[Rfam]
RNA sequence: CCCUCCCACAAAGGCGUGCCUAUUAUAUUCUGUGAGUGGGCACGUAAGAAAUGGAGGCAGAUAAAUGGACUGGCGAUAUUGCACAAAAUAGACAACUUUUCUUUGCUAUUUGUAGAUCUCCAGUCCUACAUGU
Dot-bracket structure: .(((((........(((((((...(...)........)))))))........))))).........((((...............((((((..............))))))...........)))).......